[Rfam]
RNA: Glycine riboswitch aptamer
Nucleotides: 115
Base pairs, nucleotide, nucleotide: 001110003108004107005106006105007104008103015036016035017034018033019032020031038094039093040092042089045088047086051081052080
Number, partner (000 for none) and nucleotide at each position: 001110c002000a003108c004107a005106u006105c007104u008103g009000a010000a011000a012000a013000g014000c015036g016035g017034a018033c019032c020031g021000c022000c023000c024000c025000c026000g027000a028000c029000g030000g031020c032019g033018g034017u035016c036015c037000c038094a039093c040092c041000c042089a043000a044000g045088g046000u047086g048000c049000a050000a051081g052080c053000c054000c055000u056000g057000a058000u059000c060000g061000c062000c063000g064000u065000a066000c067000u068000c069000c070000g071000g072000u073000g074000g075000c076000c077000g078000u079000g080052g081051c082000g083000a084000a085000c086047c087000u088045c089042u090000c091000a092040g093039g094038u095000u096000c097000c098000g099000a100000u101000g102000a103008c104007a105006g106005a107004u108003g109000g110001g111000g112000a113000g114000g115000a